[Rfam]
Nucleotides: 134
Stems, first nucleotide, its partner, number of pairs: 008085004013026001015024003028054001032050006056080003059076004102132003107128005114122002
Number, partner (000 for none) and nucleotide at each position: 001000a002000a003000a004000g005000a006000a007000a008085g009084c010083u011082u012000c013026u014000c015024u016023c017022g018000u019000g020000g021000a022017u023016g024015a025000c026013a027000c028054a029000c030000a031000u032050a033049g034048g035047a036046c037045a038000a039000c040000u041000a042000g043000a044000c045037u046036g047035u048034u049033c050032u051000u052000c053000a054028u055000a056080u057079a058078g059076a060075a061074u062073c063000a064000a065000c066000a067000u068000c069000a070000a071000g072000a073062g074061a075060u076059u077000u078058u079057u080056a081000a082011a083010a084009g085008c086000a087000u088000a089000a090000u091000u092000u093000u094000u095000u096000g097000u098000a099000g100000u101000u102132g103131g104130g105000c106000a107128g108127c109126u110125g111124g112000u113000a114122a115121u116000a117000a118000u119000u120000g121115g122114u123000c124111c125110u126109a127108g128107c129000a130104u131103c132102u133000c134000u
The record is a 134-nucleotide RNA from Carlito syrichta, which matches "U11 spliceosomal RNA" in Rfam. Rfam 15.1 lists 2,595 matches to the family in 1,202 species. Lineage of the source: Eukaryota > Metazoa > Bilateria > Sarcopterygii > Carlito. The base pairs follow the family's consensus structure, which is taken from published work.